The record is a 264-nucleotide sequence from Acetonema longum, which matches "raiA RNA" in Rfam. The source organism's lineage runs through Bacteria, Bacillota, Negativicutes, Acetonema and Acetonema longum. The family's consensus secondary structure is taken from published work.
[Rfam]
RNA sequence: UUUGCUUAGGUCUGUGGUUGAAAAUCGAUGCCAGUCGCAGGCGAAACGAUCCACGUAAGAAGUCCAAAGAGGCUUUGAGCAUGGUGCGGCUUAGAUAUAAGCCCUGCCGAAUUGGGAAGUGGGAGGCGGGAAAGUUCCGCCAACGAGUUUCUUGCACUGAUCCAUUGUAAUCAUUCGAGAGGAGUAGUAGUGAGGGGUUGAAUUCCUAGUAGCGAACCUUCCGGCAGGCGAGUGUGGGGGCAAAGACCAGGUCGGCUAAGCAAU
Numbered sequence: 001u002u003u004g005c006u007u008a009g010g011u012c013u014g015u016g017g018u019u020g021a022a023a024a025u026c027g028a029u030g031c032c033a034g035u036c037g038c039a040g041g042c043g044a045a046a047c048g049a050u051c052c053a054c055g056u057a058a059g060a061a062g063u064c065c066a067a068a069g070a071g072g073c074u075u076u077g078a079g080c081a082u083g084g085u086g087c088g089g090c091u092u093a094g095a096u097a098u099a100a101g102c103c104c105u106g107c108c109g110a111a112u113u114g115g116g117a118a119g120u121g122g123g124a125g126g127c128g129g130g131a132a133a134g135u136u137c138c139g140c141c142a143a144c145g146a147g148u149u150u151c152u153u154g155c156a157c158u159g160a161u162c163c164a165u166u167g168u169a170a171u172c173a174u175u176c177g178a179g180a181g182g183a184g185u186a187g188u189a190g191u192g193a194g195g196g197g198u199u200g201a202a203u204u205c206c207u208a209g210u211a212g213c214g215a216a217c218c219u220u221c222c223g224g225c226a227g228g229c230g231a232g233u234g235u236g237g238g239g240g241c242a243a244a245g246a247c248c249a250g251g252u253c254g255g256c257u258a259a260g261c262a263a264u
Stems, first nucleotide, its partner, number of pairs: 002263008012255003015249005028235003031041001033091007050084002058076003063071001082242001103228005108177004181221004190213002196206002
Background:
The sequence is in the family's curated seed alignment. It is annotated as a riboswitch.